RNA: Small nucleolar RNA U19
RNA sequence: UAUUGGCCUAGUUAGGAGGCAAAUAGUAAUAGAUCUUUGUUUGGUCUUCUGAAGCCUUUUGAGGGGACCUUGUGAUUCUUCAAUCAACUGUCCUCCAAGCAGCCUUAAGACAUAU
Numbered sequence: 001u002a003u004u005g006g007c008c009u010a011g012u013u014a015g016g017a018g019g020c021a022a023a024u025a026g027u028a029a030u031a032g033a034u035c036u037u038u039g040u041u042u043g044g045u046c047u048u049c050u051g052a053a054g055c056c057u058u059u060u061g062a063g064g065g066g067a068c069c070u071u072g073u074g075a076u077u078c079u080u081c082a083a084u085c086a087a088c089u090g091u092c093c094u095c096c097a098a099g100c101a102g103c104c105u106u107a108a109g110a111c112a113u114a115u
Stems, first nucleotide, its partner, number of pairs: 004021002007018001009016001031047005049109002052106002054103002058099004063095006071087001